[Rfam]
RNA: RNase MRP
Organism: Phrynocephalus forsythii
RNA sequence: AGGCGUCCUGAAUACCUGCUGUCUAGGCUACGCACGGAGGGCGACCCGUCCCUCUUGGGCCUUGCGCCCGCCUAGGGGAAAGUCCCCGGACCCCGGGCAGAGAGUGCCGCGUGUUUACUAACACGCAACAACUCGUCUCGCGGGCUCACGUUGCUUCCGCCAAGAAGCCGCCCCAAGGCCGAGCGGGUGAGUGCGGGAGGGGCCUGUAGUCACCCUCAUAGUUACGCAGGUAGUGCGCACGCACCGCACCAACAGAACGGGGCUCAUUCUUGGGACGCC
Number, nucleotide and partner (000 for none) at each position: 001a000002g279003g278004c277005g276006u275007c274008c273009u272010g271011a270012a000013u000014a231015c230016c229017u228018g227019c226020u000021g000022u076023c075024u074025a073026g072027g071028c070029u000030a000031c000032g000033c000034a000035c000036g000037g054038a053039g052040g051041g050042c000043g000044a000045c000046c000047c000048g000049u000050c041051c040052c039053u038054c037055u000056u000057g000058g000059g000060c000061c000062u000063u000064g000065c000066g000067c000068c000069c000070g028071c027072c026073u025074a024075g023076g022077g000078g000079a000080a000081a264082g263083u000084c262085c261086c260087c259088g000089g000090a000091c000092c000093c000094c000095g000096g108097g107098c106099a105100g000101a000102g000103a000104g000105u099106g098107c097108c096109g126110c125111g124112u123113g122114u121115u000116u000117a000118c000119u000120a000121a114122c113123a112124c111125g110126c109127a000128a000129c202130a000131a000132c000133u000134c000135g000136u198137c197138u196139c195140g194141c193142g000143g000144g000145c191146u190147c189148a188149c000150g000151u000152u000153g000154c000155u000156u000157c186158c185159g184160c183161c000162a000163a000164g000165a000166a000167g179168c178169c177170g000171c000172c000173c000174c000175a000176a000177g169178g168179c167180c000181g000182a000183g160184c159185g158186g157187g000188u148189g147190a146191g145192u000193g141194c140195g139196g138197g137198a136199g000200g000201g000202g129203c000204c000205u000206g000207u000208a000209g000210u000211c000212a000213c000214c000215c000216u000217c000218a000219u000220a000221g000222u000223u000224a000225c000226g019227c018228a017229g016230g015231u014232a000233g249234u248235g247236c246237g245238c000239a000240c000241g000242c000243a000244c000245c237246g236247c235248a234249c233250c000251a000252a000253c000254a000255g000256a000257a000258c000259g087260g086261g085262g084263c082264u081265c000266a000267u000268u000269c000270u011271u010272g009273g008274g007275a006276c005277g004278c003279c002